Overview: A member of the RNA family "Small nucleolar RNA Z103" from Helianthus annuus, 100 nucleotides long. Rfam classes the family as a C/D-box small nucleolar RNA. Taxonomically the source falls in Helianthus (Eukaryota, Mesangiospermae, eudicotyledons, Gunneridae).
RNA sequence: AUGGAAGUGAUGAUUAUUUCCCCAGAUGAUCGAAGCUGAUUAUACUGUGCGCUAUUUUACUUUCUCUUUUUAGAGAAUCCAAGCCAGAAAUCUGAUCCAU
Numbered sequence: 001a002u003g004g005a006a007g008u009g010a011u012g013a014u015u016a017u018u019u020c021c022c023c024a025g026a027u028g029a030u031c032g033a034a035g036c037u038g039a040u041u042a043u044a045c046u047g048u049g050c051g052c053u054a055u056u057u058u059a060c061u062u063u064c065u066c067u068u069u070u071u072a073g074a075g076a077a078u079c080c081a082a083g084c085c086a087g088a089a090a091u092c093u094g095a096u097c098c099a100u
Base pairs, nucleotide, nucleotide: 001100002099003098004097005096
The base pairs follow the family's consensus structure, which was predicted with PFOLD. The literature on the family includes a 2003 paper in Nucleic Acids Res by Chen et al., "The high diversity of snoRNAs in plants: identification and comparative study of 120 snoRNA genes from Oryza sativa".